[Rfam]
RNA sequence: GAAAACGCUGUGAGAAAGUUGAGUAGCGUCAAGACAACCUGAAGCGAGCUUCGUUUGGUGAGAGGAAGCAGGAGGAUUGACGCGAAAAUCCCUUUUGAGCGAUGUACCGAAGAACAAGAGUAACGUGCAUUGGUGACACCCAUUAUCGUGUUAGCGUAUCGCUUUUUUGGCCGUACGUGAAAGGCAGUUGUAGCGAUAUAACUGCAAAUAUAAGGUGGUACAGUGCAGUAGGCGCCCUUAAU
Numbered sequence: 001g002a003a004a005a006c007g008c009u010g011u012g013a014g015a016a017a018g019u020u021g022a023g024u025a026g027c028g029u030c031a032a033g034a035c036a037a038c039c040u041g042a043a044g045c046g047a048g049c050u051u052c053g054u055u056u057g058g059u060g061a062g063a064g065g066a067a068g069c070a071g072g073a074g075g076a077u078u079g080a081c082g083c084g085a086a087a088a089u090c091c092c093u094u095u096u097g098a099g100c101g102a103u104g105u106a107c108c109g110a111a112g113a114a115c116a117a118g119a120g121u122a123a124c125g126u127g128c129a130u131u132g133g134u135g136a137c138a139c140c141c142a143u144u145a146u147c148g149u150g151u152u153a154g155c156g157u158a159u160c161g162c163u164u165u166u167u168u169g170g171c172c173g174u175a176c177g178u179g180a181a182a183g184g185c186a187g188u189u190g191u192a193g194c195g196a197u198a199u200a201a202c203u204g205c206a207a208a209u210a211u212a213a214g215g216u217g218g219u220a221c222a223g224u225g226c227a228g229u230a231g232g233c234g235c236c237c238u239u240a241a242u
Stems, first nucleotide, its partner, number of pairs: 007100002015095004026083006038072003048069005103129005131142003184205007212239004223235004